Shown here is a 54-nucleotide sequence from Salmo trutta, a member of the family "UnaL2 LINE 3' element". The family's RNA type in Rfam is cis-regulatory element. NCBI's taxonomy places the organism under Eukaryota, Bilateria, Teleostei, Protacanthopterygii, Salmo.
[Rfam]
RNA sequence: AUGGUUCACUACUGUAAGUCGCUCUGGAUAAGAGCGUCUGCUAAAUGACUAAUG
Numbered sequence: 001a002u003g004g005u006u007c008a009c010u011a012c013u014g015u016a017a018g019u020c021g022c023u024c025u026g027g028a029u030a031a032g033a034g035c036g037u038c039u040g041c042u043a044a045a046u047g048a049c050u051a052a053u054g
Stems, first nucleotide, its partner, number of pairs: 013043001014041003020036006